[Rfam]
RNA sequence: AGGGCCCCCAGAAAGGCCCUCUCGGAGCGUGUGAAUAGUCCGUCUCAUUGGCCUGAACGGACGGUUCGGGAAUC
Numbered sequence: 001a002g003g004g005c006c007c008c009c010a011g012a013a014a015g016g017c018c019c020u021c022u023c024g025g026a027g028c029g030u031g032u033g034a035a036u037a038g039u040c041c042g043u044c045u046c047a048u049u050g051g052c053c054u055g056a057a058c059g060g061a062c063g064g065u066u067c068g069g070g071a072a073u074c
Stems, first nucleotide, its partner, number of pairs: 001020006032068005038062006045055001

This 74-nucleotide sequence belongs to the Rfam family "L13-Bacteroidia ribosomal protein leader". The sequence is in the family's curated seed alignment. Pairs were carried over by alignment from the consensus structure, which is taken from published work.